[Rfam]
RNA sequence: GGCGAUAAACGCGCAUGUAAUAAGCGGUUCGGACCCGGGGGCGGUACCCGGCGACUCCACCAAUCACCCUGUCAUUUGCAGGGCAGACGGGGUCGAAACAGUAUCGACGGACGUCUAAAGAUGUAGCCUUCGCUCGGUGAGAUACCACCGUUAUCGGUUCGCAAAGUAUAGUUGCAAAUGACAACCAUGCUCCGGUCGCAGUCGCCGCGUAA
Numbered sequence: 001g002g003c004g005a006u007a008a009a010c011g012c013g014c015a016u017g018u019a020a021u022a023a024g025c026g027g028u029u030c031g032g033a034c035c036c037g038g039g040g041g042c043g044g045u046a047c048c049c050g051g052c053g054a055c056u057c058c059a060c061c062a063a064u065c066a067c068c069c070u071g072u073c074a075u076u077u078g079c080a081g082g083g084c085a086g087a088c089g090g091g092g093u094c095g096a097a098a099c100a101g102u103a104u105c106g107a108c109g110g111a112c113g114u115c116u117a118a119a120g121a122u123g124u125a126g127c128c129u130u131c132g133c134u135c136g137g138u139g140a141g142a143u144a145c146c147a148c149c150g151u152u153a154u155c156g157g158u159u160c161g162c163a164a165a166g167u168a169u170a171g172u173u174g175c176a177a178a179u180g181a182c183a184a185c186c187a188u189g190c191u192c193c194g195g196u197c198g199c200a201g202u203c204g205c206c207g208c209g210u211a212a
Stems, first nucleotide, its partner, number of pairs: 001134005013124004025113002029110003035051005052095007135150004